[Rfam]
RNA: freshwater-2 RNA
RNA sequence: AGCUAAAUAUAUUUAGUUCGAUGAUUAUGCAGUAUCCAUUCUGCGUAGACCUAGAACGUCAAUAUAUAUAUAAGGAGAAACAAAAAUG
Numbered sequence: 001a002g003c004u005a006a007a008u009a010u011a012u013u014u015a016g017u018u019c020g021a022u023g024a025u026u027a028u029g030c031a032g033u034a035u036c037c038a039u040u041c042u043g044c045g046u047a048g049a050c051c052u053a054g055a056a057c058g059u060c061a062a063u064a065u066a067u068a069u070a071u072a073a074g075g076a077g078a079a080a081c082a083a084a085a086a087u088g
Stems, first nucleotide, its partner, number of pairs: 001018006026047007048060003